[Rfam]
RNA sequence: CCAAAACUAUCUCUGUACGAUCCACACCGAUGAAACAUUGUACAGAGU
Numbered sequence: 001c002c003a004a005a006a007c008u009a010u011c012u013c014u015g016u017a018c019g020a021u022c023c024a025c026a027c028c029g030a031u032g033a034a035a036c037a038u039u040g041u042a043c044a045g046a047g048u
Stems, first nucleotide, its partner, number of pairs: 011047005017041003
Rfam assigns this 48-nucleotide sequence from Blautia pseudococcoides to the family "uup RNA". By type it is a cis-regulatory element. Pairs were carried over by alignment from the consensus structure, which is taken from published work.